RNA sequence: GAGAGGUUGGCACGGGCAGGUGCUUCGCCAACCUGGUCAGGACCGGAAGGUAGCAGCCACAACGAUUACCACUUGGGUCGUCGUCCAGCCUCUCACC
Numbered sequence: 001g002a003g004a005g006g007u008u009g010g011c012a013c014g015g016g017c018a019g020g021u022g023c024u025u026c027g028c029c030a031a032c033c034u035g036g037u038c039a040g041g042a043c044c045g046g047a048a049g050g051u052a053g054c055a056g057c058c059a060c061a062a063c064g065a066u067u068a069c070c071a072c073u074u075g076g077g078u079c080g081u082c083g084u085c086c087a088g089c090c091u092c093u094c095a096c097c
Stems, first nucleotide, its partner, number of pairs: 004091005009084001012081003017075006025065003034059004042051003
About this RNA
Rfam assigns this 97-nucleotide sequence from Jannaschia helgolandensis to the family "Bacterial small signal recognition particle RNA". The family is grouped with related families in Rfam's "SRP clan". The family's consensus secondary structure is taken from published work.